RNA: Bacterial large subunit ribosomal RNA, nucleotides 2005 to 2592
Organism: Verrucomicrobia bacterium LW23
RNA sequence: CCCGCAGCAGGACGGAAAGACCCCGUGCACCUUUACUGUAGGCUGUUACUGUGUUUUCGUUCGGGAUACUUAGCGUAAGUGGGAGACGUCGAAACCUGGAUUUCGGUUCAGGCCGAGUCGCCAAUGAAACACCACCUUUUCUUAAUGGAAACUCUAACUCUAAGCCGUGAAACCGGAUAGAGAACAAUGGCAGCUGGUCAGUUUGACUGGGGCGGUUUCCUCCCAAAACGUAACGGAGGAGUUCAAAGGUUCCCUCAGCUUGGUUGGUAAUCAAGCGUCGAGCAUAUUGGUAGAAGGGAGCUUAACUGUGAGACACACACGUCGAACAGAUACGAAAGUAGGACAAAAUGAUCCGGUGGUAGAAUGUGGAAUUGCCAUCGCUCAACGGACAAAAGGUACGCCGGGGAUAACAGGCUUAUGAGACCCAAGAGUUCAUAUCGACGGUCUCGUUUGGCACCUCGAUGUCGGCUCAUCGCAUCCUGGGGCUGGAGAAGGUCCCAAGGGUCCGGCUGUUCGCCGGUUAAAGCGGUACGCGAGCUGGGUUCAGAACGUCGUGAGACAGUUCGGUCCUUAUCCGCUGUGGGCGCA
Numbered sequence: 001c002c003c004g005c006a007g008c009a010g011g012a013c014g015g016a017a018a019g020a021c022c023c024c025g026u027g028c029a030c031c032u033u034u035a036c037u038g039u040a041g042g043c044u045g046u047u048a049c050u051g052u053g054u055u056u057u058c059g060u061u062c063g064g065g066a067u068a069c070u071u072a073g074c075g076u077a078a079g080u081g082g083g084a085g086a087c088g089u090c091g092a093a094a095c096c097u098g099g100a101u102u103u104c105g106g107u108u109c110a111g112g113c114c115g116a117g118u119c120g121c122c123a124a125u126g127a128a129a130c131a132c133c134a135c136c137u138u139u140u141c142u143u144a145a146u147g148g149a150a151a152c153u154c155u156a157a158c159u160c161u162a163a164g165c166c167g168u169g170a171a172a173c174c175g176g177a178u179a180g181a182g183a184a185c186a187a188u189g190g191c192a193g194c195u196g197g198u199c200a201g202u203u204u205g206a207c208u209g210g211g212g213c214g215g216u217u218u219c220c221u222c223c224c225a226a227a228a229c230g231u232a233a234c235g236g237a238g239g240a241g242u243u244c245a246a247a248g249g250u251u252c253c254c255u256c257a258g259c260u261u262g263g264u265u266g267g268u269a270a271u272c273a274a275g276c277g278u279c280g281a282g283c284a285u286a287u288u289g290g291u292a293g294a295a296g297g298g299a300g301c302u303u304a305a306c307u308g309u310g311a312g313a314c315a316c317a318c319a320c321g322u323c324g325a326a327c328a329g330a331u332a333c334g335a336a337a338g339u340a341g342g343a344c345a346a347a348a349u350g351a352u353c354c355g356g357u358g359g360u361a362g363a364a365u366g367u368g369g370a371a372u373u374g375c376c377a378u379c380g381c382u383c384a385a386c387g388g389a390c391a392a393a394a395g396g397u398a399c400g401c402c403g404g405g406g407a408u409a410a411c412a413g414g415c416u417u418a419u420g421a422g423a424c425c426c427a428a429g430a431g432u433u434c435a436u437a438u439c440g441a442c443g444g445u446c447u448c449g450u451u452u453g454g455c456a457c458c459u460c461g462a463u464g465u466c467g468g469c470u471c472a473u474c475g476c477a478u479c480c481u482g483g484g485g486c487u488g489g490a491g492a493a494g495g496u497c498c499c500a501a502g503g504g505u506c507c508g509g510c511u512g513u514u515c516g517c518c519g520g521u522u523a524a525a526g527c528g529g530u531a532c533g534c535g536a537g538c539u540g541g542g543u544u545c546a547g548a549a550c551g552u553c554g555u556g557a558g559a560c561a562g563u564u565c566g567g568u569c570c571u572u573a574u575c576c577g578c579u580g581u582g583g584g585c586g587c588a
Base pairs, nucleotide, nucleotide: 001584002583003582004581005580006579007578008577010576011575012574014571015570022405023404024403025402027401028400029397030396031395032394033393035202036201037200038199042194043193044192045191046190047189048188051154053152054151055150056149057148058147059146060145061144063142064141065140066139068137079135080134081133082132085119086118087117095112096111097110098109099108100107101106158182159181160180163178165176166175167174205217206216207215208214218240219239220238221237222236223235241386243343244342249301250300251299252298253297254296255281256280258276259275260274261273262272263271282291283290306329307328308327309326312323313322314321331340332339333338354380355379356378357377358376359375360374362373363372414455415454416453418452419449420448421447422446423445424444425443429439430438466541467539468538469537470536471533472530473529474528475527476526479504480503482499483498484497485496486495487494506520507519508518509517510516547565548564549563550562551560552559553558